Shown here is a 135-nucleotide RNA from Nannospalax galili, a member of the family "Small nucleolar RNA SNORA46". ACA46 is a member of the H/ACA class of snoRNA that guide the sites of modification of uridines to pseudouridines. The base pairs follow the family's consensus structure, which was predicted with RNAfold. The organism belongs to Nannospalax, within Eukaryota. It scores 124 bits against the family's covariance model. The family's RNA type in Rfam is H/ACA-box small nucleolar RNA.
RNA sequence: AAAACAAUAUCAGAACCUGUGAAUGGGAAUUUUCCCCAUUCUUGGUUACACCAUAGUGCAAAAGAAUUCCUGACUCUUUGUUGCACAGCUGACUUGUACCAGAUUGCUGUUGCUUUAUGGAGUUAAGGAACAUGA
Number, nucleotide and partner (000 for none) at each position: 001a000002a000003a000004a057005c056006a000007a054008u053009a000010u000011c000012a000013g000014a047015a046016c045017c044018u000019g000020u000021g041022a040023a039024u038025g037026g036027g035028a000029a000030u000031u000032u000033u000034c000035c027036c026037c025038a024039u023040u022041c021042u000043u000044g017045g016046u015047u014048a000049c000050a000051c000052c000053a008054u007055a000056g005057u004058g000059c000060a000061a000062a000063a000064g000065a000066a000067u130068u129069c128070c127071u126072g124073a123074c122075u121076c120077u119078u000079u117080g116081u000082u000083g113084c112085a111086c109087a108088g107089c106090u000091g104092a000093c000094u000095u000096g000097u000098a000099c000100c000101a000102g000103a000104u091105u000106g089107c088108u087109g086110u000111u085112g084113c083114u000115u000116u080117a079118u000119g077120g076121a075122g074123u073124u072125a000126a071127g070128g069129a068130a067131c000132a000133u000134g000135a000